[Rfam]
RNA sequence: AAGCGUUCUCAGGGCGGGGCGAAAUUCCCCACCGGCGGUAAUGGCGGUUUCUUCGAGAGGGGAGCCGCACGAGCCCGCGAGCGCCCAAGGCCUGCAACAGGCGGCGGGGUCAGCAGAUUUCGGUGCAAUUCCGAAGCCGACGGUCACAGUCCGGAUGAAAGAGAGCGCGA
Numbered sequence: 001a002a003g004c005g006u007u008c009u010c011a012g013g014g015c016g017g018g019g020c021g022a023a024a025u026u027c028c029c030c031a032c033c034g035g036c037g038g039u040a041a042u043g044g045c046g047g048u049u050u051c052u053u054c055g056a057g058a059g060g061g062g063a064g065c066c067g068c069a070c071g072a073g074c075c076c077g078c079g080a081g082c083g084c085c086c087a088a089g090g091c092c093u094g095c096a097a098c099a100g101g102c103g104g105c106g107g108g109g110u111c112a113g114c115a116g117a118u119u120u121c122g123g124u125g126c127a128a129u130u131c132c133g134a135a136g137c138c139g140a141c142g143g144u145c146a147c148a149g150u151c152c153g154g155a156u157g158a159a160a161g162a163g164a165g166c167g168c169g170a
Stems, first nucleotide, its partner, number of pairs: 003168008017029003031150002033139002035078004073137002081114002119135005141153003
RNA: FMN riboswitch aptamer (RFN element)